[Rfam]
RNA sequence: GGCCCGAGUCUUGCUCAAGCCCUGCCAAGGCAUCCAACGGCGGUUGCCACCGAUACGACAAAGGCGUCGC
Numbered sequence: 001g002g003c004c005c006g007a008g009u010c011u012u013g014c015u016c017a018a019g020c021c022c023u024g025c026c027a028a029g030g031c032a033u034c035c036a037a038c039g040g041c042g043g044u045u046g047c048c049a050c051c052g053a054u055a056c057g058a059c060a061a062a063g064g065c066g067u068c069g070c
Stems, first nucleotide, its partner, number of pairs: 029048004034043002
Source information
This 70-nucleotide RNA sequence belongs to the Rfam family "narK RNA". Pairs were carried over by alignment from the consensus structure, which is taken from published work. The family's RNA type in Rfam is cis-regulatory element. A search with the family's covariance model found it, with a score of 66 bits.